[Rfam]
RNA sequence: GCAUCUGAAUCUUUCCCGCUCCUUGCAGUGUAGUGCUGGGCUGGGGACACGUGAUGCGACAGGAGAGCAGAGGAAAUCCAGACAAGGCUCCCUGUCGCUGCCGUGGGGCUUGUCGCUACACCUCUGCAACAUUU
Numbered sequence: 001g002c003a004u005c006u007g008a009a010u011c012u013u014u015c016c017c018g019c020u021c022c023u024u025g026c027a028g029u030g031u032a033g034u035g036c037u038g039g040g041c042u043g044g045g046g047a048c049a050c051g052u053g054a055u056g057c058g059a060c061a062g063g064a065g066a067g068c069a070g071a072g073g074a075a076a077u078c079c080a081g082a083c084a085a086g087g088c089u090c091c092c093u094g095u096c097g098c099u100g101c102c103g104u105g106g107g108g109c110u111u112g113u114c115g116c117u118a119c120a121c122c123u124c125u126g127c128a129a130c131a132u133u134u
Base pairs, nucleotide, nucleotide: 001057002056003055004054005053013047014046015045016044017043018042021039022038067127068126069125070124071123072122081114082113083112084111085110086109088108095106096105097104

A member of the RNA family "Small nucleolar RNA SNORA55" from Alectura lathami, 134 nucleotides long. The family has 29 seed sequences and 1,476 matches in Rfam 15.1. Rfam links the family to the GO terms RNA processing and nucleolus. It is annotated as an H/ACA-box small nucleolar RNA. About the family: ACA55 is a member of the H/ACA class of snoRNA that guide the sites of modification of uridines to pseudouridines. The family's consensus secondary structure was predicted with PFOLD.